[Rfam]
Annotation:
A member of the RNA family "SAM-I/IV (S-adenosyl methionine) riboswitch aptamer" from Novosphingobium nitrogenifigens, 119 nucleotides long. It scores 48 bits against the family's covariance model. Taxonomically the source falls in Novosphingobium nitrogenifigens (Bacteria, Pseudomonadati, Pseudomonadota, Sphingomonadales). Its family is annotated with regulation of gene expression and S-adenosylmethionine metabolic process in the Gene Ontology.

RNA sequence: GCGCAGCAUCAAGAGUUGGAGUGCGACGCUCCGACGCCAACCUGCCGGCAACCGGGCAAGGUGGCGCCUUCCGCAAAAGGGGAAGGGAUGUGGCCGCAGCGGCAACCAAGCGGAGCCAA
Number, nucleotide and partner (000 for none) at each position: 001g000002c000003g000004c000005a000006g091007c090008a089009u088010c087011a000012a000013g000014a000015g035016u034017u033018g032019g031020a030021g029022u028023g027024c000025g000026a000027c023028g022029c021030u020031c019032c018033g017034a016035c015036g065037c064038c063039a000040a000041c061042c060043u059044g057045c056046c055047g000048g000049c000050a000051a000052c113053c112054g000055g046056g045057c044058a000059a043060g042061g041062u000063g038064g037065c036066g000067c000068c000069u000070u000071c000072c000073g000074c000075a000076a000077a000078a000079g000080g000081g000082g000083a000084a000085g000086g000087g010088a009089u008090g007091u006092g000093g103094c102095c101096g100097c000098a000099g000100c096101g095102g094103c093104a000105a000106c000107c000108a000109a000110g000111c000112g053113g052114a000115g000116c000117c000118a000119a000